Rfam assigns this 131-nucleotide RNA from Sakesphorus luctuosus to the family "Small nucleolar RNA SNORA44". For this family Rfam cites "RNomics: an experimental approach that identifies 201 candidates for novel, small, non-messenger RNAs in mouse" (Huttenhofer et al., EMBO J, 2001). The organism belongs to Sakesphorus, within Eukaryota. The family is grouped with related families in Rfam's "SNORA44 clan". The family has 27 seed sequences and 1,056 matches in Rfam 15.1. Gene Ontology terms of the family: RNA processing and nucleolus. About the family: ACA44 is a member of the H/ACA class of snoRNA that guide the sites of modification of uridines to pseudouridines.
[Rfam]
RNA sequence: CCGCAUGUUUAUCCAAGAGCUGUGGCCCCACGCAGUGGCUGCGGGUCUCCAACAACAUGCCAGAGCAACGGGAAGGUCUUUGACUGCUGGGCCUUCUCUGCCCGUGGCUGUCACUCACCCCUCCUAUAUAU
Dot-bracket structure: ............((...(((((((......)))))...))..))..........................(((.((.........((((((.........)))).....)).......)).))).......